[Rfam]
RNA sequence: AGCUCUGUUGUCAGUGAUGGAUUCUUCGGGAGCUGAAUAUAAAUGAUUUCAGUCACUACCACUGAGACAACAGCCCG
Dot-bracket structure: .(..((((((((.....................................................))))))))..).
Numbered sequence: 001a002g003c004u005c006u007g008u009u010g011u012c013a014g015u016g017a018u019g020g021a022u023u024c025u026u027c028g029g030g031a032g033c034u035g036a037a038u039a040u041a042a043a044u045g046a047u048u049u050c051a052g053u054c055a056c057u058a059c060c061a062c063u064g065a066g067a068c069a070a071c072a073g074c075c076c077g
Stems, first nucleotide, its partner, number of pairs: 002076001005073008
The record is a 77-nucleotide RNA sequence from Crypturellus undulatus, which matches "Small nucleolar RNA SNORD70" in Rfam. The literature on the family includes a 2001 paper in EMBO J by Huttenhofer et al., "RNomics: an experimental approach that identifies 201 candidates for novel, small, non-messenger RNAs in mouse". The pairing is the family consensus, mapped onto this sequence. The family's RNA type in Rfam is C/D-box small nucleolar RNA. Gene Ontology terms of the family: nucleolus and RNA processing. snoRNA HBII-234 belongs to the C/D family of snoRNAs. It is the human orthologue of the mouse MBII-234 and is predicted to guide 2'O-ribose methylation of the small 18S rRNA on position A512. It is hosted, together with HBII-95, by the core C/D box snoRNA protein encoding gene NOP5/NOP58.